[Rfam]
RNA sequence: ACGAGGAGGUCCCCAAAUGAUGCGAAGCAUCAUUUUUGCAUGGGACCGACGAACUGCCCUCGAACAAAGUGAGGGGCAACACCAUAA
Numbered sequence: 001a002c003g004a005g006g007a008g009g010u011c012c013c014c015a016a017a018u019g020a021u022g023c024g025a026a027g028c029a030u031c032a033u034u035u036u037u038g039c040a041u042g043g044g045a046c047c048g049a050c051g052a053a054c055u056g057c058c059c060u061c062g063a064a065c066a067a068a069g070u071g072a073g074g075g076g077c078a079a080c081a082c083c084a085u086a087a
Stems, first nucleotide, its partner, number of pairs: 008047006017033006056077003060074002064070002
This 87-nucleotide sequence belongs to the Rfam family "GA-cis RNA".